[Rfam]
RNA sequence: UCCAUGGCAACGUGAGAUUUAAAGGAAGUAAGCGACAAAUCUACAGUCUGAGGAACACGAACUUCAUAAGAGGCUUGUACGGUUGGACGAUUUUGCAACACAAAACGAAGUGCUUUUUUCUGAAGGUGGUUUCAAUUAUAUGAUGCAGAUAUAUGUAUAAAUGCUAAUUUA
Numbered sequence: 001u002c003c004a005u006g007g008c009a010a011c012g013u014g015a016g017a018u019u020u021a022a023a024g025g026a027a028g029u030a031a032g033c034g035a036c037a038a039a040u041c042u043a044c045a046g047u048c049u050g051a052g053g054a055a056c057a058c059g060a061a062c063u064u065c066a067u068a069a070g071a072g073g074c075u076u077g078u079a080c081g082g083u084u085g086g087a088c089g090a091u092u093u094u095g096c097a098a099c100a101c102a103a104a105a106c107g108a109a110g111u112g113c114u115u116u117u118u119u120c121u122g123a124a125g126g127u128g129g130u131u132u133c134a135a136u137u138a139u140a141u142g143a144u145g146c147a148g149a150u151a152u153a154u155g156u157a158u159a160a161a162u163g164c165u166a167a168u169u170u171a
Stems, first nucleotide, its partner, number of pairs: 001016001003014004029171004035165001040159001042157004046150005062145001064143004073137001075135001077133001079130002082127003085113001087111002092105003

Notes: This 171-nucleotide sequence belongs to the Rfam family "Group II catalytic intron D1-D4-3". The base pairs follow the family's consensus structure. Rfam's curators write: Group II introns are found in rRNA, tRNA and mRNA of organelles in fungi, plants and protists, and also in mRNA in bacteria. Rfam links the family to the GO term Group II intron splicing.